About this RNA: Shown here is a 171-nucleotide sequence from Streptococcus varani, a member of the family "Group II catalytic intron D1-D4-3". The source organism's lineage runs through Bacteria, Bacillota, Lactobacillales, Streptococcaceae and Streptococcus. The literature on the family includes a 2001 paper in Trends Genet by Bonen and Vogel, "The ins and outs of group II introns". Rfam 15.1 lists 4,274 matches to the family in 1,585 species. Rfam's curators write: Group II introns are found in rRNA, tRNA and mRNA of organelles in fungi, plants and protists, and also in mRNA in bacteria.

[Rfam]
RNA sequence: ACUAUCGCGAGGUAGCGGGGAGAGGAAGGGAUAGCGAAAUCGUGGCUCUACGAACAGAAACGUGAUAUUAAGGCGUAUAUAGCGGAUGAGGGGGCUGAAAACUCUAAAGUCCAAAUAGGAGUAAACGAGGAAAGAUGUACGACUUAUCCCGUGAGGUCUCAUGAGCGUCCU
Numbered sequence: 001a002c003u004a005u006c007g008c009g010a011g012g013u014a015g016c017g018g019g020g021a022g023a024g025g026a027a028g029g030g031a032u033a034g035c036g037a038a039a040u041c042g043u044g045g046c047u048c049u050a051c052g053a054a055c056a057g058a059a060a061c062g063u064g065a066u067a068u069u070a071a072g073g074c075g076u077a078u079a080u081a082g083c084g085g086a087u088g089a090g091g092g093g094g095c096u097g098a099a100a101a102c103u104c105u106a107a108a109g110u111c112c113a114a115a116u117a118g119g120a121g122u123a124a125a126c127g128a129g130g131a132a133a134g135a136u137g138u139a140c141g142a143c144u145u146a147u148c149c150c151g152u153g154a155g156g157u158c159u160c161a162u163g164a165g166c167g168u169c170c171u
Stems, first nucleotide, its partner, number of pairs: 002015005031171001035167002040164004044159001046155003061151002064148003072143001074141001076139005084112004090105004